This 96-nucleotide RNA from Ananas comosus belongs to the Rfam family "Small nucleolar RNA Z159/U59". The family's RNA type in Rfam is C/D-box small nucleolar RNA. Clan: SNORD59 clan.

RNA sequence: GUAUUCGAGGAUGAGCAAAUAUUUUCGAUCUUCUGAGGGUGGUGAACUUUAUUCCACUCAUGCGGAAUCAAUCUUGGAGACCUGAACUGAGAAUAC
Numbered sequence: 001g002u003a004u005u006c007g008a009g010g011a012u013g014a015g016c017a018a019a020u021a022u023u024u025u026c027g028a029u030c031u032u033c034u035g036a037g038g039g040u041g042g043u044g045a046a047c048u049u050u051a052u053u054c055c056a057c058u059c060a061u062g063c064g065g066a067a068u069c070a071a072u073c074u075u076g077g078a079g080a081c082c083u084g085a086a087c088u089g090a091g092a093a094u095a096c
Stems, first nucleotide, its partner, number of pairs: 003094004